[Rfam]
RNA sequence: CAGUGUUGUCAAAUGUAACAGCAACUCCAUGUGGACUAAAUAUGUUUCCAGUGGAGGUGCUGUUACUUUUGACGGCCAC
Numbered sequence: 001c002a003g004u005g006u007u008g009u010c011a012a013a014u015g016u017a018a019c020a021g022c023a024a025c026u027c028c029a030u031g032u033g034g035a036c037u038a039a040a041u042a043u044g045u046u047u048c049c050a051g052u053g054g055a056g057g058u059g060c061u062g063u064u065a066c067u068u069u070u071g072a073c074g075g076c077c078a079c
Stems, first nucleotide, its partner, number of pairs: 009072003015066008025056006032050003
This 79-nucleotide RNA from Phrynocephalus forsythii belongs to the Rfam family "mir-194 microRNA precursor family". The source organism's lineage runs through Eukaryota, Opisthokonta, Chordata, Craniata and Phrynocephalus. A reference for the family is Lagos-Quintana et al. (2003), "New microRNAs from mouse and human", RNA.